[Rfam]
RNA sequence: GCCACAUGAUGUAUUUUCAGAGACAUGAGCACUCAGUGCUGAGAUGACCUUUAUCUAUCACCCUUGACUGAUGGCA
Dot-bracket structure: ((((........................((((...))))................................)))).
RNA: Small nucleolar RNA SNORD83